[Rfam]
A member of the RNA family "Bacterial large subunit ribosomal RNA" from Oceanococcus atlanticus, 227 nucleotides of a longer RNA. The organism belongs to Oceanococcus, within Bacteria. Pairs were carried over by alignment from the consensus structure, which is taken from published work. It scores 2872 bits against the family's covariance model.

RNA sequence: GACUUAAUUUUUGUGGCGAGCUUAACCGUUAGGGAAGGCGUAGGGAAACCGAGUCUGAAUAGGGCGUUUUAGUCGCAAGGAUUAGACCCGAAACCUGGCGAUCUAUCCAUGGGCAGGUUGAAGGUGAGGUAAUACUCACUGGAGGACCGAACUCACUAAUGUUGAAAAAUUAGGAGAUGACCUGUGGAUCGGAGUGAAAGGCUAAUCAAGCCAGGAGAUAGCUGGUU
Numbered sequence: 001g002a003c004u005u006a007a008u009u010u011u012u013g014u015g016g017c018g019a020g021c022u023u024a025a026c027c028g029u030u031a032g033g034g035a036a037g038g039c040g041u042a043g044g045g046a047a048a049c050c051g052a053g054u055c056u057g058a059a060u061a062g063g064g065c066g067u068u069u070u071a072g073u074c075g076c077a078a079g080g081a082u083u084a085g086a087c088c089c090g091a092a093a094c095c096u097g098g099c100g101a102u103c104u105a106u107c108c109a110u111g112g113g114c115a116g117g118u119u120g121a122a123g124g125u126g127a128g129g130u131a132a133u134a135c136u137c138a139c140u141g142g143a144g145g146a147c148c149g150a151a152c153u154c155a156c157u158a159a160u161g162u163u164g165a166a167a168a169a170u171u172a173g174g175a176g177a178u179g180a181c182c183u184g185u186g187g188a189u190c191g192g193a194g195u196g197a198a199a200g201g202c203u204a205a206u207c208a209a210g211c212c213a214g215g216a217g218a219u220a221g222c223u224g225g226u227u
Stems, first nucleotide, its partner, number of pairs: 005084013020039004026033002043050002053065004087225002090222001094215006103191001105189009114179001116148004123140006152176003156173005193203003